[Rfam]
RNA sequence: AACGCAGGCUGCAAUUACAGCGCUCCAGACCGUGGGAGCGUUGCCAUUUUCCCUGCUGACACCAAAUCUGCUGGCCGCCAAUCUGUCUGGUCUUCCCUUCUCGUGGUGAGAUUUCAGCUGGUGACAGCAAACACGC
Numbered sequence: 001a002a003c004g005c006a007g008g009c010u011g012c013a014a015u016u017a018c019a020g021c022g023c024u025c026c027a028g029a030c031c032g033u034g035g036g037a038g039c040g041u042u043g044c045c046a047u048u049u050u051c052c053c054u055g056c057u058g059a060c061a062c063c064a065a066a067u068c069u070g071c072u073g074g075c076c077g078c079c080a081a082u083c084u085g086u087c088u089g090g091u092c093u094u095c096c097c098u099u100c101u102c103g104u105g106g107u108g109a110g111a112u113u114u115c116a117g118c119u120g121g122u123g124a125c126a127g128c129a130a131a132c133a134c135g136c
Stems, first nucleotide, its partner, number of pairs: 004056005018043009069129005076123004089113006096106002099103001
Dot-bracket structure: ...(((((.........(((((((((........)))))))))........)))))............(((((..((((.........((((((.((.(...).)).))))))......)))).))))).......
Background: Small nucleolar RNA SNORA69: a 136-nucleotide RNA from Callorhinchus milii. Pairs were carried over by alignment from the consensus structure, which was predicted with PFOLD. Rfam 15.1 lists 808 matches to the family in 584 species. Rfam describes the family as follows. U69 is a member of the H/ACA class of small nucleolar RNAs (snoRNAs) which act as guides in the the modification of uridines to pseudouridines. Its family is annotated with RNA processing and nucleolus in the Gene Ontology.